[Rfam]
RNA sequence: GGUUGCAAGUUUAAGGCUAUAGCAGAAGCACUAACAGUACGGCCCUAUCAAAUUCCAAAGAAUCUGCAAAUUCUACU
Numbered sequence: 001g002g003u004u005g006c007a008a009g010u011u012u013a014a015g016g017c018u019a020u021a022g023c024a025g026a027a028g029c030a031c032u033a034a035c036a037g038u039a040c041g042g043c044c045c046u047a048u049c050a051a052a053u054u055c056c057a058a059a060g061a062a063u064c065u066g067c068a069a070a071u072u073c074u075a076c077u
Base pairs, nucleotide, nucleotide: 015044016043017042018041021077022076024074025073026072027071028040030038049066050065052063053062054061055060